[Rfam]
RNA sequence: AGUCUAAUGCUGUAAGAGUAGUGGACAGAUGUGAUUUCUGAUCAAAUUUACACUAAGACU
Numbered sequence: 001a002g003u004c005u006a007a008u009g010c011u012g013u014a015a016g017a018g019u020a021g022u023g024g025a026c027a028g029a030u031g032u033g034a035u036u037u038c039u040g041a042u043c044a045a046a047u048u049u050a051c052a053c054u055a056a057g058a059c060u
Stems, first nucleotide, its partner, number of pairs: 001060004
Dot-bracket structure: ((((....................................................))))